[Rfam]
RNA: Plant signal recognition particle RNA
Organism: Quercus lobata
RNA sequence: GCCGAGCUUGGUCACGUGAGCUUUUUACCCAGGUGGGGGCUCCAAGGUGAUGGAACAUUGGCCCAACUCAACUGGUCGGACCCAUAUUCGGCUCACCUGCUGGCUCGCCCGUUCCAAGCAAAGAGUUGAAUUGAUGGGUCCAGCGUUUCCUAAAGCGAAGGGGAAUGCGUGUGGCCUUCACAGAGCAGCGGCCAAUUUCCGCUCUCUGCAGUGGGGAAGGAUAACGAGCCGGUGCCAUUUGUGUUCAAUUAGGCCUGCUUGGUUGGACCCAACUGGACCAUUA
Numbered sequence: 001g002c003c004g005a006g007c008u009u010g011g012u013c014a015c016g017u018g019a020g021c022u023u024u025u026u027a028c029c030c031a032g033g034u035g036g037g038g039g040c041u042c043c044a045a046g047g048u049g050a051u052g053g054a055a056c057a058u059u060g061g062c063c064c065a066a067c068u069c070a071a072c073u074g075g076u077c078g079g080a081c082c083c084a085u086a087u088u089c090g091g092c093u094c095a096c097c098u099g100c101u102g103g104c105u106c107g108c109c110c111g112u113u114c115c116a117a118g119c120a121a122a123g124a125g126u127u128g129a130a131u132u133g134a135u136g137g138g139u140c141c142a143g144c145g146u147u148u149c150c151u152a153a154a155g156c157g158a159a160g161g162g163g164a165a166u167g168c169g170u171g172u173g174g175c176c177u178u179c180a181c182a183g184a185g186c187a188g189c190g191g192c193c194a195a196u197u198u199c200c201g202c203u204c205u206c207u208g209c210a211g212u213g214g215g216g217a218a219g220g221a222u223a224a225c226g227a228g229c230c231g232g233u234g235c236c237a238u239u240u241g242u243g244u245u246c247a248a249u250u251a252g253g254c255c256u257g258c259u260u261g262g263u264u265g266g267a268c269c270c271a272a273c274u275g276g277a278c279c280a281u282u283a
Stems, first nucleotide, its partner, number of pairs: 001040003004023007028037003048283006056275002058272003061268001063266004068262004072257001074255004078246004083241002090236002094234002100232008109220002112218003115213002118209003122205005128149003132145002135142002150155001157199004168190003175183001